[Rfam]
RNA sequence: AGAGUGUUACGAUGAUGGGAAACCUAGUCUAGCUCUGUCUGGUCCCUAGACCCUGUCUGGGGAC
Numbered sequence: 001a002g003a004g005u006g007u008u009a010c011g012a013u014g015a016u017g018g019g020a021a022a023c024c025u026a027g028u029c030u031a032g033c034u035c036u037g038u039c040u041g042g043u044c045c046c047u048a049g050a051c052c053c054u055g056u057c058u059g060g061g062g063a064c
Base pairs, nucleotide, nucleotide: 002035003034004033005032011029012028013027017024018023042064043063044062045061046060047059048058049057050056
Background:
This 64-nucleotide sequence from Aerococcus urinaehominis belongs to the Rfam family "L17 ribosomal protein downstream element". Lineage of the source: Bacteria > Bacilli > Lactobacillales > Aerococcaceae > Aerococcus. The match comes from Rfam's covariance-model search (48 bits). Rfam classes the family as a cis-regulatory element.